[Rfam]
RNA sequence: CGACAUCCCCAUUACCUAUGGACACGGUGUCGCAGGCUCUCAACAGGGGUUGUUUCCCCAGGGUCUGCUGGAAGUUUUUCCGUGUCCCA
Number, nucleotide and partner (000 for none) at each position: 001c032002g031003a030004c029005a028006u027007c026008c000009c021010c020011a019012u018013u000014a000015c000016c000017u000018a012019u011020g010021g009022a000023c000024a000025c000026g007027g006028u005029g004030u003031c002032g001033c067034a066035g065036g064037c063038u062039c061040u060041c000042a000043a000044c000045a000046g059047g058048g057049g056050u000051u000052g000053u000054u000055u000056c049057c048058c047059c046060a040061g039062g038063g037064u036065c035066u034067g033068c000069u000070g000071g000072a000073a000074g000075u000076u000077u000078u000079u000080c000081c000082g000083u000084g000085u000086c000087c000088c000089a000
Description:
The family of this 89-nucleotide RNA from Pelodictyon phaeoclathratiforme is "SAM-Chlorobi RNA". It is annotated as a cis-regulatory element. It scores 84 bits against the family's covariance model.